[Rfam]
RNA sequence: CGGGGACGAGGGCAGUCUCCCCGCCUCCCAAGACGCUCGCGCGUCCAAGCGCUGC
Numbered sequence: 001c002g003g004g005g006a007c008g009a010g011g012g013c014a015g016u017c018u019c020c021c022c023g024c025c026u027c028c029c030a031a032g033a034c035g036c037u038c039g040c041g042c043g044u045c046c047a048a049g050c051g052c053u054g055c
Base pairs, nucleotide, nucleotide: 001023002022003021004020005019006018012055013054014053015052016051032045033044034043035042036041
RNA: chrB-b RNA
Organism: Ramlibacter monticola